This 63-nucleotide sequence from Geobacter sp. OR-1 belongs to the Rfam family "L20-Deltaproteobacteria ribosomal protein leader".
RNA sequence: UGCCGAGAACCGUGAGGAAACGUCUCCCCUUGCGGAUCAGGUGAAAUACAAGAAAAAGAGGAG
Numbered sequence: 001u002g003c004c005g006a007g008a009a010c011c012g013u014g015a016g017g018a019a020a021c022g023u024c025u026c027c028c029c030u031u032g033c034g035g036a037u038c039a040g041g042u043g044a045a046a047u048a049c050a051a052g053a054a055a056a057a058g059a060g061g062a063g
Stems, first nucleotide, its partner, number of pairs: 003041002007038002010035008
Record summary: The sequence is in the family's curated seed alignment. The literature on the family includes a 2020 paper in BMC Microbiol by Eckert and Weinberg, "Discovery of 20 novel ribosomal leader candidates in bacteria and archaea".